[Rfam]
RNA sequence: UCUCGAUAAAGGCAAAGCUUGGCGCAAGCCAGUGACGCAAAGCUAUAGGGGCUAUGUGGAUUAUGAUUACCACAUUGCUAGCCAGUUACCGAA
Numbered sequence: 001u002c003u004c005g006a007u008a009a010a011g012g013c014a015a016a017g018c019u020u021g022g023c024g025c026a027a028g029c030c031a032g033u034g035a036c037g038c039a040a041a042g043c044u045a046u047a048g049g050g051g052c053u054a055u056g057u058g059g060a061u062u063a064u065g066a067u068u069a070c071c072a073c074a075u076u077g078c079u080a081g082c083c084a085g086u087u088a089c090c091g092a093a
Base pairs, nucleotide, nucleotide: 012038013037017033018032019031021030022029023028041087042086043085044084048083049082050079051078052077056073057072058071059070
Source information
c-di-GMP-I riboswitch aptamer: a 93-nucleotide RNA sequence from Paraliobacillus quinghaiensis. Rfam describes the family as follows. GEMM was predicted in a large-scale screen for bacterial structured RNA regulatory elements. The family's consensus secondary structure is taken from published work. NCBI's taxonomy places the organism under Bacteria, Bacillati, Caryophanales, Bacillaceae, Paraliobacillus. The match comes from Rfam's covariance-model search (60 bits).